[Rfam]
RNA: J750 non-coding RNA (containing SLSL761 and SL783)
RNA sequence: AUUCCGCUCGUCGGCGCCCCUGUAGGGGGCGUCGCAAGAGCCCUAGCUCAUGGCGUUAGGGCCCUUGAGGACGGAGUGAACUAUGCAACAGGGAACCUUCCUGGUUGCUCCUU
Numbered sequence: 001a002u003u004c005c006g007c008u009c010g011u012c013g014g015c016g017c018c019c020c021u022g023u024a025g026g027g028g029g030c031g032u033c034g035c036a037a038g039a040g041c042c043c044u045a046g047c048u049c050a051u052g053g054c055g056u057u058a059g060g061g062c063c064c065u066u067g068a069g070g071a072c073g074g075a076g077u078g079a080a081c082u083a084u085g086c087a088a089c090a091g092g093g094a095a096c097c098u099u100c101c102u103g104g105u106u107g108c109u110c111c112u113u
Base pairs, nucleotide, nucleotide: 001077002076003075004074005073008071009070012034013033014032015031016030017029018028019026020025035067036066037065038064040062041061042060043059044058045057046056047055049053085108086107087106088105089104091102092101093100